A member of the RNA family "Small Cajal body specific RNA 16" from Erinaceus europaeus, 185 nucleotides long. Rfam links the family to the GO terms nucleolus and RNA processing. scaRNAs are a specific class of small nuclear RNAs which localise to the Cajal bodies and guide the modification of RNA polymerase II transcribed spliceosomal RNAs U1, U2, U4, U5 and U12. ACA47 belongs to the H/ACA box class of guide RNAs as it has the predicted hairpin-hinge-hairpin-tail structure, the conserved H/ACA-box motifs and is found associated with GAR1. ACA47 is predicted to guide the pseudouridylation of residue U5 of the U1 spliceosomal snRNA. Rfam classes the family as a small Cajal body RNA.

[Rfam]
RNA sequence: AUGGUCUGGAGAAAGGCUCCUGUGUUGUUGGACCUGCCCAGCAUGAGUGCAGCCUUGUACCAGGCAGUCAGACCUUGACCUAGAGUAAGUGCCUGAACAAGUUCUCAUGGGUCUUGGAACUUUCAGUAACAGGUGUGAGUAUUCUAGCAGCAGUUUGGUGAUUAUGUAUGAUACUGCAAACAGGA
Numbered sequence: 001a002u003g004g005u006c007u008g009g010a011g012a013a014a015g016g017c018u019c020c021u022g023u024g025u026u027g028u029u030g031g032a033c034c035u036g037c038c039c040a041g042c043a044u045g046a047g048u049g050c051a052g053c054c055u056u057g058u059a060c061c062a063g064g065c066a067g068u069c070a071g072a073c074c075u076u077g078a079c080c081u082a083g084a085g086u087a088a089g090u091g092c093c094u095g096a097a098c099a100a101g102u103u104c105u106c107a108u109g110g111g112u113c114u115u116g117g118a119a120c121u122u123u124c125a126g127u128a129a130c131a132g133g134u135g136u137g138a139g140u141a142u143u144c145u146a147g148c149a150g151c152a153g154u155u156u157g158g159u160g161a162u163u164a165u166g167u168a169u170g171a172u173a174c175u176g177c178a179a180a181c182a183g184g185a
Base pairs, nucleotide, nucleotide: 003080004079005078006077008075009074015069016068017067018066019064020063021062022061024060025059027053028052029051030050032048033047091112092111093110097105121179122178124176125175126174127173128172130170131169136164137163138162140160141159142158143157146155147154148153